RNA: mir-9256 microRNA precursor family
Organism: Cnephaeus nilssonii
RNA sequence: AUAUACACUGAGUGGCCAGAUUAUUAUGCGAUUAGAGAUUAUAAUAAUCUGGCCACUCAGUGUAAGU
Numbered sequence: 001a002u003a004u005a006c007a008c009u010g011a012g013u014g015g016c017c018a019g020a021u022u023a024u025u026a027u028g029c030g031a032u033u034a035g036a037g038a039u040u041a042u043a044a045u046a047a048u049c050u051g052g053c054c055a056c057u058c059a060g061u062g063u064a065a066g067u
Stems, first nucleotide, its partner, number of pairs: 004064014019049010